Small nucleolar RNA SNORD53/SNORD92: a 78-nucleotide sequence from Cricetulus griseus. Lineage of the source: Eukaryota > Teleostomi > Sarcopterygii > Cricetidae > Cricetulus.
RNA sequence: UUGCUGUGAUGACUUUUAUUGGGUUUUGCAUACUGAUGAAUUCCCAUGAUGCCUCCUUUCUCUUGGCUGUCUGAGCAA
Numbered sequence: 001u002u003g004c005u006g007u008g009a010u011g012a013c014u015u016u017u018a019u020u021g022g023g024u025u026u027u028g029c030a031u032a033c034u035g036a037u038g039a040a041u042u043c044c045c046a047u048g049a050u051g052c053c054u055c056c057u058u059u060c061u062c063u064u065g066g067c068u069g070u071c072u073g074a075g076c077a078a
Stems, first nucleotide, its partner, number of pairs: 001078004
Clan: SNORD52 clan. A reference for the family is Kiss-Laszlo et al. (1996), "Site-specific ribose methylation of preribosomal RNA: a novel function for small nucleolar RNAs", Cell. It is annotated as a C/D-box small nucleolar RNA. The match comes from Rfam's covariance-model search (77 bits).